Rfam assigns this 76-nucleotide RNA sequence from Ceutorhynchus assimilis to the family "mir-9/mir-79 microRNA precursor family".
Rfam 15.1 lists 5,647 matches to the family in 934 species.
[Rfam]
RNA sequence: UUAUAUUGUUCUUUGGUGAUCUAGUUGUAUGAGUUUUUUUGACUUCAUAAAGCUGGUUCAGCAAAGCACAAUGUGU
Numbered sequence: 001u002u003a004u005a006u007u008g009u010u011c012u013u014u015g016g017u018g019a020u021c022u023a024g025u026u027g028u029a030u031g032a033g034u035u036u037u038u039u040u041g042a043c044u045u046c047a048u049a050a051a052g053c054u055g056g057u058u059c060a061g062c063a064a065a066g067c068a069c070a071a072u073g074u075g076u
Stems, first nucleotide, its partner, number of pairs: 002075004007070003011066005017060003021056006028049006

A reference for the family is Lagos-Quintana et al. (2002), "Identification of tissue-specific microRNAs from mouse", Curr Biol. Rfam links the family to the GO terms miRNA-mediated post-transcriptional gene silencing and RISC complex.